[Rfam]
RNA: Lysine riboswitch aptamer
Organism: Liquorilactobacillus capillatus
RNA sequence: UUGUCGAAAAGAGGUCGCAGAUAAUAUUAGUAAUUAUCCGGAGAUAUUAAAGUAUUACUGAUGGAUAAUGAAAGGAGCAUCUGCCGAAGCUAAUGUUGCUUUAACGGCAUUAAGCUGGGGUUCAGCCUAAUAAGCUGAAAACUGUCGCAAGUAAUUGCGGAGCGCUAUCGAGUAU
Numbered sequence: 001u002u003g004u005c006g007a008a009a010a011g012a013g014g015u016c017g018c019a020g021a022u023a024a025u026a027u028u029a030g031u032a033a034u035u036a037u038c039c040g041g042a043g044a045u046a047u048u049a050a051a052g053u054a055u056u057a058c059u060g061a062u063g064g065a066u067a068a069u070g071a072a073a074g075g076a077g078c079a080u081c082u083g084c085c086g087a088a089g090c091u092a093a094u095g096u097u098g099c100u101u102u103a104a105c106g107g108c109a110u111u112a113a114g115c116u117g118g119g120g121u122u123c124a125g126c127c128u129a130a131u132a133a134g135c136u137g138a139a140a141a142c143u144g145u146c147g148c149a150a151g152u153a154a155u156u157g158c159g160g161a162g163c164g165c166u167a168u169c170g171a172g173u174a175u
Base pairs, nucleotide, nucleotide: 008168010166011165017084018083019082020081021080022079025076033069034068035067036066037065038064039063040062088116089115090114091112092111093110094109095108096107097106098105117143118142121139122138123137124136125135126134145160146159147158148157149156150155